[Rfam]
Overview
A member of the RNA family "Bacterial RNase P class B" from Atopococcus tabaci, 368 nucleotides long.
RNA sequence: AAUUACGGAUAAUCGCUGCUUUAUUAUGAAGUAGAGGAAAGUCCAUGCUCGCACAGGCUGAGAUGCUUGUAGUGUUCGUGCUUUGCGAAACGAUAAGCAAAGGACUCUUAAUUCAAAGAGGACGGCAGUUAAAAAAGCUAAGGCUUUGCUAAGCUUGAGUAGACUAUAAAGUACCACAGAGACGAAGUAAACUUGCAAACGAGUUUAAUGGAACGCGGUAAACCCCUCGAGCGAGAAACCCAAACAUUUGGUAGGGGCACUUUUCAAUUGGAAAUGAACAAGAGAAAAGGUAAAUGAAAAAUCAUUUACAGACAGAUGAUUAUCACGAAGAAUAUGAUAUUCUUUACGACAAAACAUGGCUUACAGUA
Number, nucleotide and partner (000 for none) at each position: 001a000002a000003u000004u368005a367006c366007g364008g324009a323010u322011a321012a320013u319014c318015g000016c034017u033018g032019c031020u030021u029022u000023a000024u000025u000026a000027u000028g000029a021030a020031g019032u018033a017034g016035a000036g000037g000038a000039a362040a361041g360042u000043c359044c358045a357046u356047g355048c235049u234050c233051g232052c231053a070054c069055a068056g067057g066058c065059u000060g000061a000062g000063a000064u000065g058066c057067u056068u055069g054070u053071a000072g000073u000074g000075u000076u230077c229078g228079u000080g226081c102082u101083u100084u099085g098086c097087g000088a000089a000090a000091c000092g000093a000094u000095a000096a000097g086098c085099a084100a083101a082102g081103g123104a000105c120106u119107c118108u117109u116110a000111a000112u000113u000114c000115a000116a109117a108118g107119a106120g105121g000122a000123c103124g225125g224126c000127a165128g164129u163130u162131a000132a000133a000134a000135a156136a155137g154138c153139u000140a000141a000142g150143g149144c148145u000146u000147u000148g144149c143150u142151a000152a000153g138154c137155u136156u135157g000158a000159g000160u000161a000162g130163a129164c128165u127166a000167u000168a000169a000170a000171g223172u222173a219174c218175c217176a000177c000178a000179g000180a000181g000182a000183c000184g000185a000186a000187g000188u207189a206190a205191a204192c203193u202194u201195g200196c000197a000198a000199a000200c195201g194202a193203g192204u191205u190206u189207a188208a000209u000210g000211g000212a000213a000214c000215g000216c000217g175218g174219u173220a000221a000222a172223c171224c125225c124226c080227u000228c078229g077230a076231g052232c051233g050234a049235g048236a000237a000238a000239c256240c255241c254242a000243a000244a000245c000246a000247u000248u000249u000250g000251g000252u000253a000254g241255g240256g239257g000258c000259a000260c289261u288262u287263u286264u285265c284266a000267a000268u000269u000270g000271g000272a000273a000274a000275u000276g000277a000278a000279c000280a000281a000282g000283a000284g265285a264286a263287a262288a261289g260290g309291u308292a307293a306294a305295u304296g303297a302298a000299a000300a000301a000302u297303c296304a295305u294306u293307u292308a291309c290310a000311g000312a000313c000314a000315g000316a000317u000318g014319a013320u012321u011322a010323u009324c008325a000326c000327g345328a344329a343330g342331a341332a340333u339334a000335u000336g000337a000338u000339a333340u332341u331342c330343u329344u328345u327346a000347c000348g000349a000350c000351a000352a000353a000354a000355c047356a046357u045358g044359g043360c041361u040362u039363a000364c007365a000366g006367u005368a004
On this family, see Brown, Nucleic Acids Res 1999: "The Ribonuclease P Database". Its Rfam clan is "RNaseP clan".